Overview
A member of the RNA family "transfer-messenger RNA" from Arthrobacter mobilis, 369 nucleotides long. Rfam classes the family as a non-coding RNA gene. About the family: Bacterial tmRNA, also known as 10Sa RNA or SsrA, is named for its dual tRNA and mRNA-like properties. Its role is to liberate the mRNA from a stalled ribosome. The source organism's lineage runs through Bacteria, Bacillati, Actinomycetota, Micrococcales and Arthrobacter.
RNA sequence: GGGGAUGAUCGGUUUCGACGAUGUUAGUCGCGACAGGUGAAGCGGGCCGAGGAUGCAGAGUUAUCUCGUAAACGCUCUCUGUAAACCAAUAAGUGCCGAAUCUAAGCGCACUGACUUCGAACUCGCUGCCUAAGCAGUAGUUCAGUCCGUCAGCCCGGGGACGCCUUCGCCCCGGUAACUGGCGUCAUUUAGAAGGCCACUGCUGGACACUUUCGCCGUUGGAGUGUCCGGGACUUUUAGACGGCUGGGCCCGGGCUAGCCACUCGUUUGCAUGAUGGCUAGGGCCGAGAAAACCCGACGCAAACUGCGCCCGGAGAAGCCCUGGCAACACAACAUCGGACGGGGGUUCAAUUCCCCCCAUCUCCACGA
Numbered sequence: 001g002g003g004g005a006u007g008a009u010c011g012g013u014u015u016c017g018a019c020g021a022u023g024u025u026a027g028u029c030g031c032g033a034c035a036g037g038u039g040a041a042g043c044g045g046g047c048c049g050a051g052g053a054u055g056c057a058g059a060g061u062u063a064u065c066u067c068g069u070a071a072a073c074g075c076u077c078u079c080u081g082u083a084a085a086c087c088a089a090u091a092a093g094u095g096c097c098g099a100a101u102c103u104a105a106g107c108g109c110a111c112u113g114a115c116u117u118c119g120a121a122c123u124c125g126c127u128g129c130c131u132a133a134g135c136a137g138u139a140g141u142u143c144a145g146u147c148c149g150u151c152a153g154c155c156c157g158g159g160g161a162c163g164c165c166u167u168c169g170c171c172c173c174g175g176u177a178a179c180u181g182g183c184g185u186c187a188u189u190u191a192g193a194a195g196g197c198c199a200c201u202g203c204u205g206g207a208c209a210c211u212u213u214c215g216c217c218g219u220u221g222g223a224g225u226g227u228c229c230g231g232g233a234c235u236u237u238u239a240g241a242c243g244g245c246u247g248g249g250c251c252c253g254g255g256c257u258a259g260c261c262a263c264u265c266g267u268u269u270g271c272a273u274g275a276u277g278g279c280u281a282g283g284g285c286c287g288a289g290a291a292a293a294c295c296c297g298a299c300g301c302a303a304a305c306u307g308c309g310c311c312c313g314g315a316g317a318a319g320c321c322c323u324g325g326c327a328a329c330a331c332a333a334c335a336u337c338g339g340a341c342g343g344g345g346g347u348u349c350a351a352u353u354c355c356c357c358c359c360a361u362c363u364c365c366a367c368g369a
Stems, first nucleotide, its partner, number of pairs: 001365007019338007032326001034324003039320001043313005048068005054083007121141003125138005148184006155175006163197006203231009215245005248286005254280004261274002267303002271297001342358005
Dot-bracket structure: (((((((...........(((((((......(.(((..(...((((([[[[[.(((((((...]]]]]........))))))).....................................(((.(((((....))))))))......((((((.((((((..[[[[[[.))))))...)))))).......]]]]]].....(((((((((...[[[[[...))))))))).........]]]]]..(((((.((((...((....[[..[.))..)))).)))))..........]....]].....)))))......).))).).....)))))))...(((((.......))))))))))))....